A member of the RNA family "Singlet oxygen resistance RNA X" from Pseudooceanicola marinus, 70 nucleotides long. Gene Ontology term of the family: response to photooxidative stress. A search with the family's covariance model found it, with a score of 74 bits. The family has 8 seed sequences and 528 matches in Rfam 15.1. NCBI's taxonomy places the organism under Bacteria, Pseudomonadati, Alphaproteobacteria, Paracoccaceae, Pseudooceanicola. Rfam's curators write: SorX (RSs2461)like SorY is a singlet oxygen induced sRNA that counteracts oxidative stress by targeting mRNA for a transporter in Rhodobacter. It also has an impact on resistance against organic hydroperoxides.
[Rfam]
RNA sequence: AACCCGCACAUAUCCGGGUUAGAUAUGUACCUCCCUGUUGGACUGGCCCGGGCUUUGCCCGGGCUUUUUC
Dot-bracket structure: .......(((((((.......))))))).................((((((((...))))))))......